A member of the RNA family "SAM riboswitch aptamer (S box leader)" from Sporocytophaga myxococcoides, 112 nucleotides long.
RNA sequence: AACUUAUCCGGAAAGACGGAGGGAUUGGGCCCUUAGAUGUCUUAGCAACCCUUUAAUAGAAGGUGCUAACUCCCACUCUGAGAAUUUUAUUUUCAGCAGAGAAAGAUAAGGU
Numbered sequence: 001a002a003c004u005u006a007u008c009c010g011g012a013a014a015g016a017c018g019g020a021g022g023g024a025u026u027g028g029g030c031c032c033u034u035a036g037a038u039g040u041c042u043u044a045g046c047a048a049c050c051c052u053u054u055a056a057u058a059g060a061a062g063g064u065g066c067u068a069a070c071u072c073c074c075a076c077u078c079u080g081a082g083a084a085u086u087u088u089a090u091u092u093u094c095a096g097c098a099g100a101g102a103a104a105g106a107u108a109a110g111g112u
Stems, first nucleotide, its partner, number of pairs: 001112001003110006013043005021032003026075004044067004049063002051059002071104001076101005
The family's consensus secondary structure is taken from published work.